[Rfam]
RNA sequence: GCGGAUGUAGCUCAAUGGUAGAGCCCUAGUCUUCCAAACUAGCCACGCGGGUUCGAUUCCCGUCAUCCGCU
Numbered sequence: 001g002c003g004g005a006u007g008u009a010g011c012u013c014a015a016u017g018g019u020a021g022a023g024c025c026c027u028a029g030u031c032u033u034c035c036a037a038a039c040u041a042g043c044c045a046c047g048c049g050g051g052u053u054c055g056a057u058u059c060c061c062g063u064c065a066u067c068c069g070c071u
Base pairs, nucleotide, nucleotide: 001070002069003068004067005066006065007064010024011023012022013021026042027041028040029039030038047063048062049061050060051059